[Rfam]
RNA sequence: UUCAAAGUGUAAGUAUGUCCCAUGCACAAUUUGGGAUAUACUUAUACUAAAA
Dot-bracket structure: .....(((((((.(((.(((((........).)))).))).)))))))....
Numbered sequence: 001u002u003c004a005a006a007g008u009g010u011a012a013g014u015a016u017g018u019c020c021c022a023u024g025c026a027c028a029a030u031u032u033g034g035g036a037u038a039u040a041c042u043u044a045u046a047c048u049a050a051a052a
Stems, first nucleotide, its partner, number of pairs: 006048007014040003018036004022031001